[Rfam]
This 88-nucleotide RNA from Fusobacterium ulcerans belongs to the Rfam family "SAM riboswitch aptamer (S box leader)". The organism belongs to Fusobacterium ulcerans, within Bacteria. Rfam's curators put it in the seed alignment.

RNA sequence: AUACCAUCAAGAGAGAUUGAGGGACUGGCCCGUUGAAAUCUCAGCAACCUGCUUUUUAAGUGUGGUGCUAACUCCUGAGAGAUGGAAU
Numbered sequence: 001a002u003a004c005c006a007u008c009a010a011g012a013g014a015g016a017u018u019g020a021g022g023g024a025c026u027g028g029c030c031c032g033u034u035g036a037a038a039u040c041u042c043a044g045c046a047a048c049c050u051g052c053u054u055u056u057u058a059a060g061u062g063u064g065g066u067g068c069u070a071a072c073u074c075c076u077g078a079g080a081g082a083u084g085g086a087a088u
Stems, first nucleotide, its partner, number of pairs: 001088002004085005013042005021031003025077001027075002043069004048065002050062004073080001